[Rfam]
RNA sequence: GGAUCAUGACUCCCUCAAUCUGCUUUCCUUGGAAAAUUGAACAAAAUGAGUGAGAACUCCCUGCCGCCGUGCUCAUCAAAACAGGUCC
Numbered sequence: 001g002g003a004u005c006a007u008g009a010c011u012c013c014c015u016c017a018a019u020c021u022g023c024u025u026u027c028c029u030u031g032g033a034a035a036a037u038u039g040a041a042c043a044a045a046a047u048g049a050g051u052g053a054g055a056a057c058u059c060c061c062u063g064c065c066g067c068c069g070u071g072c073u074c075a076u077c078a079a080a081a082c083a084g085g086u087c088c
Stems, first nucleotide, its partner, number of pairs: 001088005023052001025050003029044003